[Rfam]
RNA: Y RNA
Organism: Saimiri boliviensis
RNA sequence: GGCUGGUCUGAGGCAGUGAUGUUUACAAAAAGUUGAUCACAAUCGGUUACAGAUUCCUUUGUUCCUUCUCCAUUUCCACUGCUUCACUUGACUAGCCUUAA
Numbered sequence: 001g002g003c004u005g006g007u008c009u010g011a012g013g014c015a016g017u018g019a020u021g022u023u024u025a026c027a028a029a030a031a032g033u034u035g036a037u038c039a040c041a042a043u044c045g046g047u048u049a050c051a052g053a054u055u056c057c058u059u060u061g062u063u064c065c066u067u068c069u070c071c072a073u074u075u076c077c078a079c080u081g082c083u084u085c086a087c088u089u090g091a092c093u094a095g096c097c098u099u100a101a
Base pairs, nucleotide, nucleotide: 001097002096003095004094005093006092007091008090010089011088013085015080016079017078018077027063028062031059032058